[Rfam]
RNA sequence: GGGGCCCAAAUGGAGCUCUCUCCACUUCAACUCUGAAAGGAGGUGACGGUAGACCACGACUGCUAGUUCAUGAAUACCCUUAGAUGCGAACGAUAAAGCUAAAUGUGCGCAUGUUAAGGGUUUGCAUGAGGUGGGAGACGAGGCUACUUUGAUCUUUUUGGUAUUGGAGUGAAGGGAGCUCCAAAUGGUCUUCCA
Numbered sequence: 001g002g003g004g005c006c007c008a009a010a011u012g013g014a015g016c017u018c019u020c021u022c023c024a025c026u027u028c029a030a031c032u033c034u035g036a037a038a039g040g041a042g043g044u045g046a047c048g049g050u051a052g053a054c055c056a057c058g059a060c061u062g063c064u065a066g067u068u069c070a071u072g073a074a075u076a077c078c079c080u081u082a083g084a085u086g087c088g089a090a091c092g093a094u095a096a097a098g099c100u101a102a103a104u105g106u107g108c109g110c111a112u113g114u115u116a117a118g119g120g121u122u123u124g125c126a127u128g129a130g131g132u133g134g135g136a137g138a139c140g141a142g143g144c145u146a147c148u149u150u151g152a153u154c155u156u157u158u159u160g161g162u163a164u165u166g167g168a169g170u171g172a173a174g175g176g177a178g179c180u181c182c183a184a185a186u187g188g189u190c191u192u193c194c195a
Stems, first nucleotide, its partner, number of pairs: 013181008023171007036158001060137002063134003069128004077120001

The family of this 195-nucleotide RNA sequence from Prunus yedoensis is "MIR159 microRNA precursor family".
Its family is annotated with miRNA-mediated post-transcriptional gene silencing and RISC complex in the Gene Ontology.
The family's consensus secondary structure was predicted with WAR.
Lineage of the source: Eukaryota > Streptophyta > rosids > Amygdaleae > Prunus yedoensis.